[Rfam]
RNA: Plant small nucleolar RNA R71
RNA sequence: AGGUCAUAUUGCGGGCAGUUUCUGAGUAACCCCUUUUACCUGUCCCACCCUUCAUACAAAGAUUCUCCACUUUGUUGUUCGAAGUUGGCUAUGUUUUUCUUCAAUUU
Numbered sequence: 001a002g003g004u005c006a007u008a009u010u011g012c013g014g015g016c017a018g019u020u021u022c023u024g025a026g027u028a029a030c031c032c033c034u035u036u037u038a039c040c041u042g043u044c045c046c047a048c049c050c051u052u053c054a055u056a057c058a059a060a061g062a063u064u065c066u067c068c069a070c071u072u073u074g075u076u077g078u079u080c081g082a083a084g085u086u087g088g089c090u091a092u093g094u095u096u097u098u099c100u101u102c103a104a105u106u107u
Stems, first nucleotide, its partner, number of pairs: 001107001003105002006101001057074002060071001